[Rfam]
RNA sequence: CUCCUCACACCGAGAGAAGACCCCGUGGAGCUUCACCGCAGCCUGGCGUUGGUUCUCGGGCGUUCAUGCGUAGCGUAGGUGGGAGGCGUCGAAGUCGUCCCUUCGGGGGCGAUGGAGCCGAAGGUGAAACACCACCCAUGAAUGCUCGGGAACCUAACCUGAAAAGGGACACCGUCAGGUGGGCGGUUCGGCUGGGGCGGCACUCCCGCGAAAAGAUAACACGGGAGCCCAAAGGUCAGCUCAGGCGGUACAGAACGCCGCCGUAGAGUGCAAGGGCAAAAGCUGGCCUGACGAGACCCUUCAAAGUACGGGGUCUCGACGCGAAAGCGCGGCCUAGCGAACGCUCAUGCCCCCACACGUGGGGGCUGGGCAUGACAGAAAAGUUACCCCGGGGAUAACAGGGUCGUCGCGGGCGAGAGCUCCCAUCGACCCCGCGGUUUGCUACAUCGAUGUCGGCUCUUCCCACCCUGGAGGUGCAGCUGCCUCCAAGGGUAGGGCUGCCCGCCCGUUAAAGGGGAACGUGAGCUGGGUUUAGACCGUCGCGAGACAGGUCGGACUCUAAGGGUGAGGAGUGCA
Numbered sequence: 001c002u003c004c005u006c007a008c009a010c011c012g013a014g015a016g017a018a019g020a021c022c023c024c025g026u027g028g029a030g031c032u033u034c035a036c037c038g039c040a041g042c043c044u045g046g047c048g049u050u051g052g053u054u055c056u057c058g059g060g061c062g063u064u065c066a067u068g069c070g071u072a073g074c075g076u077a078g079g080u081g082g083g084a085g086g087c088g089u090c091g092a093a094g095u096c097g098u099c100c101c102u103u104c105g106g107g108g109g110c111g112a113u114g115g116a117g118c119c120g121a122a123g124g125u126g127a128a129a130c131a132c133c134a135c136c137c138a139u140g141a142a143u144g145c146u147c148g149g150g151a152a153c154c155u156a157a158c159c160u161g162a163a164a165a166g167g168g169a170c171a172c173c174g175u176c177a178g179g180u181g182g183g184c185g186g187u188u189c190g191g192c193u194g195g196g197g198c199g200g201c202a203c204u205c206c207c208g209c210g211a212a213a214a215g216a217u218a219a220c221a222c223g224g225g226a227g228c229c230c231a232a233a234g235g236u237c238a239g240c241u242c243a244g245g246c247g248g249u250a251c252a253g254a255a256c257g258c259c260g261c262c263g264u265a266g267a268g269u270g271c272a273a274g275g276g277c278a279a280a281a282g283c284u285g286g287c288c289u290g291a292c293g294a295g296a297c298c299c300u301u302c303a304a305a306g307u308a309c310g311g312g313g314u315c316u317c318g319a320c321g322c323g324a325a326a327g328c329g330c331g332g333c334c335u336a337g338c339g340a341a342c343g344c345u346c347a348u349g350c351c352c353c354c355a356c357a358c359g360u361g362g363g364g365g366c367u368g369g370g371c372a373u374g375a376c377a378g379a380a381a382a383g384u385u386a387c388c389c390c391g392g393g394g395a396u397a398a399c400a401g402g403g404u405c406g407u408c409g410c411g412g413g414c415g416a417g418a419g420c421u422c423c424c425a426u427c428g429a430c431c432c433c434g435c436g437g438u439u440u441g442c443u444a445c446a447u448c449g450a451u452g453u454c455g456g457c458u459c460u461u462c463c464c465a466c467c468c469u470g471g472a473g474g475u476g477c478a479g480c481u482g483c484c485u486c487c488a489a490g491g492g493u494a495g496g497g498c499u500g501c502c503c504g505c506c507c508g509u510u511a512a513a514g515g516g517g518a519a520c521g522u523g524a525g526c527u528g529g530g531u532u533u534a535g536a537c538c539g540u541c542g543c544g545a546g547a548c549a550g551g552u553c554g555g556a557c558u559c560u561a562a563g564g565g566u567g568a569g570g571a572g573u574g575c576a
Stems, first nucleotide, its partner, number of pairs: 001572008010564002014559002022393004027389002029385005035187004042179007051154018078136005085119003097110005158167003190203001191201003204226005229332002235287006241267002244262006268277002292318009320329001322327001343371005349366001351365004402443003406440001407437007417427002454529001455527004459521001460518005467492002471486005495507004535553004539548003
Rfam assigns this 576-nucleotide part of an RNA from Metallosphaera cuprina to the family "Archaeal large subunit ribosomal RNA". The family's consensus secondary structure is taken from published work.